[Rfam]
RNA sequence: ACAUAUUCUCAGGGCGGGGUGUAAUUCCCCACCGGCGGUAUGUGGCCUUGCGUCACGAGCCCGCGAGCGCGACCGCCCCUUUUGGGUCGGUUGGUCAGCAGAUCUGGUGAGAUGCCAGAGCCGACGGUCAUAGUCCGGAUGAAAGAGAAUGCGU
Numbered sequence: 001a002c003a004u005a006u007u008c009u010c011a012g013g014g015c016g017g018g019g020u021g022u023a024a025u026u027c028c029c030c031a032c033c034g035g036c037g038g039u040a041u042g043u044g045g046c047c048u049u050g051c052g053u054c055a056c057g058a059g060c061c062c063g064c065g066a067g068c069g070c071g072a073c074c075g076c077c078c079c080u081u082u083u084g085g086g087u088c089g090g091u092u093g094g095u096c097a098g099c100a101g102a103u104c105u106g107g108u109g110a111g112a113u114g115c116c117a118g119a120g121c122c123g124a125c126g127g128u129c130a131u132a133g134u135c136c137g138g139a140u141g142a143a144a145g146a147g148a149a150u151g152c153g154u
Stems, first nucleotide, its partner, number of pairs: 004151007017029003031134002033123002035064004059121002067099002103119005125137003
Dot-bracket structure: ...(((((((......(((.......))).[[((((((....................[[))))..((.............................))...(((((.......)))))]])).(((.....]]))).......)))))))...
Rfam assigns this 154-nucleotide RNA sequence from Sulfitobacter marinus to the family "FMN riboswitch aptamer (RFN element)". The match comes from Rfam's covariance-model search (110 bits). The RFN element is a highly conserved domain that is found frequently in the 5'-untranslated regions of prokaryotic mRNAs that encode for flavin mononucleotide (FMN) biosynthesis and transport proteins. Lineage of the source: Bacteria > Pseudomonadota > Alphaproteobacteria > Roseobacteraceae > Sulfitobacter. Its family is annotated with FMN binding in the Gene Ontology.